[Rfam]
RNA sequence: CCCGCCGCAGUGGCUGACGCGGAUGCGGAGCAGCAAACGAGGCCGUCGGCCAUUUUGUGUCUGUUUCCUGUGGGACGCGGUGGUA
Numbered sequence: 001c002c003c004g005c006c007g008c009a010g011u012g013g014c015u016g017a018c019g020c021g022g023a024u025g026c027g028g029a030g031c032a033g034c035a036a037a038c039g040a041g042g043c044c045g046u047c048g049g050c051c052a053u054u055u056u057g058u059g060u061c062u063g064u065u066u067c068c069u070g071u072g073g074g075a076c077g078c079g080g081u082g083g084u085a
Base pairs, nucleotide, nucleotide: 002083003082004081005080006079007078008077010076011075014074015073017071018070019069021068022067023066025064026063027062028061029060030058031057032056033055038048039047040046

This 85-nucleotide RNA from Microcebus murinus belongs to the Rfam family "mir-632 microRNA precursor family". Pairs were carried over by alignment from the consensus structure, which was predicted with RNAalifold. Its family is annotated with miRNA-mediated post-transcriptional gene silencing and RISC complex in the Gene Ontology. The family has 8 seed sequences and 126 matches in Rfam 15.1.